[Rfam]
RNA: FMN riboswitch aptamer (RFN element)
Organism: Paralcaligenes ureilyticus
RNA sequence: CAACGUUCUCAGGGCGGGGCGAAAAUCCCCACCGGCGGUAAUUGCGCGUUAGCGCAUAGCCCGCGAGCGCUUGCUGGUUUAUGCGGCAGGGACAGCAGACCUGGUUGGAUUCCGGGGCCGACGGUUAAAGUCCGGAUGAAAGAGAAUGGGG
Number, nucleotide and partner (000 for none) at each position: 001c000002a000003a000004c148005g147006u146007u145008c144009u143010c142011a000012g000013g000014g000015c000016g000017g029018g028019g027020c000021g000022a000023a000024a000025a000026u000027c019028c018029c017030c000031a131032c130033c120034g119035g064036c063037g062038g061039u000040a000041a000042u000043u000044g000045c000046g000047c000048g000049u000050u000051a000052g000053c000054g000055c000056a000057u000058a000059g118060c117061c038062c037063g036064c035065g000066a000067g096068c095069g000070c000071u000072u000073g000074c000075u000076g000077g000078u000079u000080u000081a000082u000083g000084c000085g000086g000087c000088a000089g000090g000091g000092a000093c000094a000095g068096c067097a000098g000099a000100c116101c115102u114103g113104g112105u000106u000107g000108g000109a000110u000111u000112c104113c103114g102115g101116g100117g060118c059119c034120g033121a000122c134123g133124g132125u000126u000127a000128a000129a000130g032131u031132c124133c123134g122135g000136a000137u000138g000139a000140a000141a000142g010143a009144g008145a007146a006147u005148g004149g000150g000151g000